[Rfam]
Nucleotides: 095
Stems, first nucleotide, its partner, number of pairs: 004092004
Number, partner (000 for none) and nucleotide at each position: 001000u002000g003000a004092g005091g006090a007089u008000g009000g010000u011000g012000a013000u014000g015000a016000a017000a018000a019000a020000a021000a022000a023000u024000g025000g026000u027000a028000u029000c030000a031000g032000u033000u034000g035000u036000g037000a038000u039000g040000a041000u042000c043000a044000a045000u046000c047000u048000u049000u050000u051000a052000c053000g054000u055000g056000a057000u058000c059000c060000a061000a062000a063000u064000a065000u066000c067000c068000a069000u070000u071000u072000u073000g074000c075000u076000a077000c078000g079000u080000u081000c082000u083000u084000u085000c086000u087000g088000a089007a090006u091005c092004c093000u094000c095000u
Annotation:
Rfam assigns this 95-nucleotide RNA from Camphora micrantha to the family "Small nucleolar RNA R32/R81/Z41". The base pairs follow the family's consensus structure, which was predicted with PFOLD. Taxonomically the source falls in Camphora (Eukaryota, Embryophyta, Tracheophyta, Laurales). By type it is a C/D-box small nucleolar RNA.